[Rfam]
RNA sequence: UGUCAAGCGUUUAGGCGUCGUUCGGCGAGCAGAUUUCUUUUGCCUUUGAAAAGGUGAAGGAAAAG
Numbered sequence: 001u002g003u004c005a006a007g008c009g010u011u012u013a014g015g016c017g018u019c020g021u022u023c024g025g026c027g028a029g030c031a032g033a034u035u036u037c038u039u040u041u042g043c044c045u046u047u048g049a050a051a052a053g054g055u056g057a058a059g060g061a062a063a064a065g
Base pairs, nucleotide, nucleotide: 010061011060012058016056017055018054019053021052022050025047027045029043030042031041032040033039